[Rfam]
Nucleotides: 084
Base pairs, nucleotide, nucleotide: 002083003082004081005080006079007078
Number, partner (000 for none) and nucleotide at each position: 001000u002083g003082a004081c005080a006079g007078u008000a009000g010000u011000g012000a013000u014000g015000a016000u017000g018000a019000u020000g021000a022000c023000a024000g025000u026000u027000g028000u029000c030000u031000u032000u033000g034000u035000c036000c037000u038000g039000a040000a041000a042000c043000a044000g045000u046000c047000c048000a049000u050000g051000u052000g053000g054000g055000u056000u057000a058000u059000c060000a061000g062000u063000c064000a065000c066000u067000a068000c069000c070000u071000c072000u073000u074000c075000u076000g077000a078007a079006c080005u081004g082003u083002c084000a